[Rfam]
RNA: SmY spliceosomal RNA
RNA sequence: GUACCCAUCAUCAUCAUUCCAGGGCCUUUUUACAAGACCCGAAGUCCAAUUUUUGGAGACCCACUUCAUUAGAACUCGGGUU
Numbered sequence: 001g002u003a004c005c006c007a008u009c010a011u012c013a014u015c016a017u018u019c020c021a022g023g024g025c026c027u028u029u030u031u032a033c034a035a036g037a038c039c040c041g042a043a044g045u046c047c048a049a050u051u052u053u054u055g056g057a058g059a060c061c062c063a064c065u066u067c068a069u070u071a072g073a074a075c076u077c078g079g080g081u082u
Stems, first nucleotide, its partner, number of pairs: 022040003026036003059081004063076001065074003